The record is a 99-nucleotide sequence from Mangrovibacter sp. MFB070, which matches "TPP riboswitch aptamer (THI element)" in Rfam. The source organism's lineage runs through Bacteria, Pseudomonadota, Gammaproteobacteria, Enterobacteriaceae and Mangrovibacter.

RNA sequence: CCGUUCUCAACGGGGUGCCCUGGAUACCAGGCGCUGAGAUAAUACCCGUCGAACCUGAUCCGGAUAACGCCGGCGAAGGGAUUUGAGGCCGUUCUCAAA
Number, nucleotide and partner (000 for none) at each position: 001c000002c000003g000004u000005u000006c087007u086008c085009a084010a083011c048012g047013g046014g045015g000016u042017g034018c033019c000020c031021u030022g000023g000024a000025u000026a000027c000028c000029a000030g021031g020032c000033g018034c017035u000036g000037a000038g000039a000040u000041a000042a016043u000044a000045c014046c013047c012048g011049u000050c000051g000052a000053a000054c079055c078056u077057g000058a000059u000060c073061c072062g071063g070064a000065u000066a000067a000068c000069g000070c063071c062072g061073g060074c000075g000076a000077a056078g055079g054080g000081a000082u000083u010084u009085g008086a007087g006088g000089c000090c000091g000092u000093u000094c000095u000096c000097a000098a000099a000